The record is a 96-nucleotide RNA sequence from Lachnospiraceae bacterium OF09-33XD, which matches "THF (Tetrahydrofolate) riboswitch aptamer" in Rfam.
RNA sequence: UGCAAAAUAGGAUUCCAUGCGUCAAGUGUUCACCGGAUGGGGAGUUGCCGUGAAACGAAAAGCUCGUCUUACGAUAUGGAAUCUGCACCCGUUGCA
Numbered sequence: 001u002g003c004a005a006a007a008u009a010g011g012a013u014u015c016c017a018u019g020c021g022u023c024a025a026g027u028g029u030u031c032a033c034c035g036g037a038u039g040g041g042g043a044g045u046u047g048c049c050g051u052g053a054a055a056c057g058a059a060a061a062g063c064u065c066g067u068c069u070u071a072c073g074a075u076a077u078g079g080a081a082u083c084u085g086c087a088c089c090c091g092u093u094g095c096a
Base pairs, nucleotide, nucleotide: 001096002095003094004093005092010084011083012082013081014080015079016078017077018076019075020073021072022071026056027055029054030053031052032051033050035049036048040090041089042088044086060070061069062068
Gene Ontology term of the family: tetrahydrofolate metabolic process. The family's consensus secondary structure is taken from published work.